[Rfam]
Nucleotides: 096
Stems, first nucleotide, its partner, number of pairs: 002096007
Number, partner (000 for none) and nucleotide at each position: 001000u002096g003095a004094g005093c006092a007091u008090c009000a010000g011000u012000g013000a014000u015000g016000a017000u018000c019000c020000a021000u022000a023000c024000g025000u026000a027000a028000a029000u030000c031000g032000u033000c034000a035000u036000c037000c038000u039000u040000g041000c042000a043000c044000u045000u046000u047000g048000a049000u050000u051000g052000c053000c054000a055000g056000u057000g058000a059000a060000g061000a062000u063000a064000a065000c066000a067000a068000a069000c070000g071000g072000g073000g074000a075000u076000u077000u078000u079000u080000u081000u082000c083000a084000u085000u086000c087000u088000g089000a090008g091007a092006u093005g094004c095003u096002u